[Rfam]
RNA sequence: UAGUUGAGCCAGGGGUGCAUUUUGCUGAGAAAGGUCUAACCUUACCCUUAUGAUCUGAACUGGGUAAUGCCAGCGUAGAGAGAGCAAUGUUAAAAUAGU
Numbered sequence: 001u002a003g004u005u006g007a008g009c010c011a012g013g014g015g016u017g018c019a020u021u022u023u024g025c026u027g028a029g030a031a032a033g034g035u036c037u038a039a040c041c042u043u044a045c046c047c048u049u050a051u052g053a054u055c056u057g058a059a060c061u062g063g064g065u066a067a068u069g070c071c072a073g074c075g076u077a078g079a080g081a082g083a084g085c086a087a088u089g090u091u092a093a094a095a096u097a098g099u
Stems, first nucleotide, its partner, number of pairs: 008085002011048004017025003032042004054079004060073004
Notes:
Shown here is a 99-nucleotide RNA sequence from Thomasclavelia cocleata, a member of the family "TPP riboswitch aptamer (THI element)". It scores 59 bits against the family's covariance model. The family's consensus secondary structure is taken from published work.